The record is a 72-nucleotide RNA sequence from Rhizobium sp. RU36D, which matches "ybhL leader" in Rfam. The literature on the family includes a 2005 paper in Genome Biol by Corbino et al., "Evidence for a second class of S-adenosylmethionine riboswitches and other regulatory RNA motifs in alpha-proteobacteria". Rfam describes the family as follows. This family is a putative regulatory RNA structure that is found upstream of an uncharacterized membrane protein in alpha-proteobacteria. Rfam links the family to the GO term regulation of gene expression. Taxonomically the source falls in Rhizobium (Bacteria, Pseudomonadota, Hyphomicrobiales, Rhizobiaceae). The pairing is the family consensus, mapped onto this sequence.
Nucleotides: 072
Stems, first nucleotide, its partner, number of pairs: 012070008023053003030048003034043001
Number, partner (000 for none) and nucleotide at each position: 001000c002000a003000g004000g005000c006000a007000u008000g009000c010000u011000g012070g013069a014068g015067c016066u017065c018064c019063g020000c021000a022000g023053c024052g025051g026000c027000g028000c029000c030048u031047g032046a033000c034043g035000a036000u037000c038000g039000a040000u041000c042000g043034u044000c045000c046032u047031c048030g049000c050000a051025c052024c053023g054000u055000c056000a057000a058000c059000a060000c061000c062000u063019c064018g065017g066016a067015g068014c069013u070012u071000g072000u